[Rfam]
The record is an 84-nucleotide sequence from Streptomyces boncukensis, which matches "sodF sRNA" in Rfam. By type it is a small RNA. The match comes from Rfam's covariance-model search (68 bits). A reference for the family is Kim et al. (2014), "Inverse regulation of Fe- and Ni-containing SOD genes by a Fur family regulator Nur through small RNA processed from 3'UTR of the sodF mRNA", Nucleic Acids Res. Lineage of the source: Bacteria > Bacillati > Actinomycetota > Kitasatosporales > Streptomyces. Gene Ontology terms of the family: negative regulation of translation, mRNA binding and regulation of mRNA stability.
RNA sequence: CCGCUCCUCGUGAUCGUCUUCUCACCCUUCACGGGAGCGGGCAGGAGAGGGGCCCUGUGUGGACGUGACACACAGGGCCCCUCG
Numbered sequence: 001c002c003g004c005u006c007c008u009c010g011u012g013a014u015c016g017u018c019u020u021c022u023c024a025c026c027c028u029u030c031a032c033g034g035g036a037g038c039g040g041g042c043a044g045g046a047g048a049g050g051g052g053c054c055c056u057g058u059g060u061g062g063a064c065g066u067g068a069c070a071c072a073c074a075g076g077g078c079c080c081c082u083c084g
Base pairs, nucleotide, nucleotide: 002039003038004037005036006035007034010032011031012030013029016026047083048082049081050080051079052078053077054076055075056074057073058072059071060070061069